[Rfam]
RNA: Lysine riboswitch aptamer
RNA sequence: UAAAAUGAUAGAGGUGCGGUGUUCAUCAGUAUUAUAUAAUGGAAUUGCGGUGAUUUUAUAUAGGAAAGGGGAUACUGCCGAAGGAUUUAUUUUUACCGAAAAAGUAAGUCCUGGUAUAUUACAGAAUAUGUAAUGUACUGUCACAAAGAUGUGGAGCGCUAUCCUAAAG
Numbered sequence: 001u002a003a004a005a006u007g008a009u010a011g012a013g014g015u016g017c018g019g020u021g022u023u024c025a026u027c028a029g030u031a032u033u034a035u036a037u038a039a040u041g042g043a044a045u046u047g048c049g050g051u052g053a054u055u056u057u058a059u060a061u062a063g064g065a066a067a068g069g070g071g072a073u074a075c076u077g078c079c080g081a082a083g084g085a086u087u088u089a090u091u092u093u094u095a096c097c098g099a100a101a102a103a104g105u106a107a108g109u110c111c112u113g114g115u116a117u118a119u120u121a122c123a124g125a126a127u128a129u130g131u132a133a134u135g136u137a138c139u140g141u142c143a144c145a146a147a148g149a150u151g152u153g154g155a156g157c158g159c160u161a162u163c164c165u166a167a168a169g
Base pairs, nucleotide, nucleotide: 007163008162009161010160011159016078017077018076019075020074021073022072023071024070032063033062034061035060036059037058038057039056082112083111084110085109086108087107088106089105090104091103092102093101113139114138115137116136117135118134119133120132121131122130123129141154142153143152144151145150